[Rfam]
RNA sequence: AAUGGAGUAGGAGAUAACGCGUCAAGUGCAAUCAAGACGGAGAGUUGCUUGAUUGACGAAUGGUUUCGCCCAGCGGUGUUAUCUCCGCAUCUCGCCGUU
Numbered sequence: 001a002a003u004g005g006a007g008u009a010g011g012a013g014a015u016a017a018c019g020c021g022u023c024a025a026g027u028g029c030a031a032u033c034a035a036g037a038c039g040g041a042g043a044g045u046u047g048c049u050u051g052a053u054u055g056a057c058g059a060a061u062g063g064u065u066u067c068g069c070c071c072a073g074c075g076g077u078g079u080u081a082u083c084u085c086c087g088c089a090u091c092u093c094g095c096c097g098u099u
Stems, first nucleotide, its partner, number of pairs: 001099005010086010020075003026057002029055008040092001042090001044088001061072003
RNA: THF (Tetrahydrofolate) riboswitch aptamer